[Rfam]
RNA sequence: CGGGGAGUAUCUAUAUUUAUAGAACUUCACCUAUAGUUUUUUUAUUACAUAUUGUACACAAACUCGCCCAUAUCGAGAGAGUGGGACUGAAAU
Numbered sequence: 001c002g003g004g005g006a007g008u009a010u011c012u013a014u015a016u017u018u019a020u021a022g023a024a025c026u027u028c029a030c031c032u033a034u035a036g037u038u039u040u041u042u043u044a045u046u047a048c049a050u051a052u053u054g055u056a057c058a059c060a061a062a063c064u065c066g067c068c069c070a071u072a073u074c075g076a077g078a079g080a081g082u083g084g085g086a087c088u089g090a091a092a093u
Base pairs, nucleotide, nucleotide: 002031003030004028005027006026007025008024010023011022012021013020065089066087067085068084069083070082071081073080074079
A member of the RNA family "pan motif" from Clostridium acetobutylicum, 93 nucleotides long.
The family's RNA type in Rfam is cis-regulatory element.
Taxonomically the source falls in Clostridium acetobutylicum (Bacteria, Bacillota, Clostridia, Clostridium).
The sequence is in the family's curated seed alignment.